[Rfam]
This 73-nucleotide RNA sequence from Caenorhabditis auriculariae belongs to the Rfam family "mir-86 microRNA precursor family". The organism belongs to Caenorhabditis, within Eukaryota.
RNA sequence: UCGCCAGUUAAGUGAAUGCUUUGCCACAGUCUUAGAUCAAGUAAGCUGUGCGAAGAUUCGCUUAGGCUGGAGA
Numbered sequence: 001u002c003g004c005c006a007g008u009u010a011a012g013u014g015a016a017u018g019c020u021u022u023g024c025c026a027c028a029g030u031c032u033u034a035g036a037u038c039a040a041g042u043a044a045g046c047u048g049u050g051c052g053a054a055g056a057u058u059c060g061c062u063u064a065g066g067c068u069g070g071a072g073a
Base pairs, nucleotide, nucleotide: 004070005069006068009064010063011062012061013060014059015058016057017056019055020054021053023051024050027048028047029046
Rfam links the family to the GO terms RISC complex and miRNA-mediated post-transcriptional gene silencing. The match comes from Rfam's covariance-model search (77 bits). The family's consensus secondary structure was predicted with RNAalifold.